The family of this 135-nucleotide sequence from Veronia pacifica is "Histidine operon leader".
Rfam links the family to the GO term histidine biosynthetic process.
The base pairs follow the family's consensus structure, which is taken from published work.
The literature on the family includes a 1982 paper in Annu Rev Genet by Kolter and Yanofsky, "Attenuation in amino acid biosynthetic operons".
RNA sequence: UCAUCACCAUCAUCAUCCUGAUUAGUCUUUCGGGAGGAGUGGUUUCGACUGGAAGGCAAAGAAGGCAGUGCUUCCAUCGGUCAUUACAAAAAAGAAUUUGAGACCCCUGGAAGAGAUUCCGGGGGUUUUUCGUUU
Numbered sequence: 001u002c003a004u005c006a007c008c009a010u011c012a013u014c015a016u017c018c019u020g021a022u023u024a025g026u027c028u029u030u031c032g033g034g035a036g037g038a039g040u041g042g043u044u045u046c047g048a049c050u051g052g053a054a055g056g057c058a059a060a061g062a063a064g065g066c067a068g069u070g071c072u073u074c075c076a077u078c079g080g081u082c083a084u085u086a087c088a089a090a091a092a093a094g095a096a097u098u099u100g101a102g103a104c105c106c107c108u109g110g111a112a113g114a115g116a117u118u119c120c121g122g123g124g125g126u127u128u129u130u131c132g133u134u135u
Stems, first nucleotide, its partner, number of pairs: 008047001011039001013037001017034005048077001050076006097132001100129013